[Rfam]
RNA sequence: GCUGAUGUGUAUGAUGACUAAAGCUUUUUUCCCCAUCAGAUCGAUACUGUUGAUCUUGCUGUAUUAGCCAGUCUUUGUCUGAUACAUCAGC
Numbered sequence: 001g002c003u004g005a006u007g008u009g010u011a012u013g014a015u016g017a018c019u020a021a022a023g024c025u026u027u028u029u030u031c032c033c034c035a036u037c038a039g040a041u042c043g044a045u046a047c048u049g050u051u052g053a054u055c056u057u058g059c060u061g062u063a064u065u066a067g068c069c070a071g072u073c074u075u076u077g078u079c080u081g082a083u084a085c086a087u088c089a090g091c
Stems, first nucleotide, its partner, number of pairs: 001091009

This 91-nucleotide sequence from Thamnophis sirtalis belongs to the Rfam family "Small nucleolar SNORD12/SNORD106". Rfam classes the family as a C/D-box small nucleolar RNA. The match comes from Rfam's covariance-model search (81 bits). For this family Rfam cites "RNomics: an experimental approach that identifies 201 candidates for novel, small, non-messenger RNAs in mouse" (Huttenhofer et al., EMBO J, 2001). The base pairs follow the family's consensus structure, which was predicted with RNAalifold. NCBI's taxonomy places the organism under Eukaryota, Sauropsida, Sauria, Episquamata, Thamnophis. Rfam links the family to the GO terms nucleolus and RNA processing.